[Rfam]
RNA sequence: GGAAGCUGGUUUCAGGUGGUGGCUUAGAGUGUCAUAUAUCAUGUAUCUAGCACCAUUUGAAAUCAGUGUUCC
Numbered sequence: 001g002g003a004a005g006c007u008g009g010u011u012u013c014a015g016g017u018g019g020u021g022g023c024u025u026a027g028a029g030u031g032u033c034a035u036a037u038a039u040c041a042u043g044u045a046u047c048u049a050g051c052a053c054c055a056u057u058u059g060a061a062a063u064c065a066g067u068g069u070u071c072c
Stems, first nucleotide, its partner, number of pairs: 001072004005067010016056006025049004
RNA: mir-29 microRNA precursor family
Organism: Synaphobranchus kaupii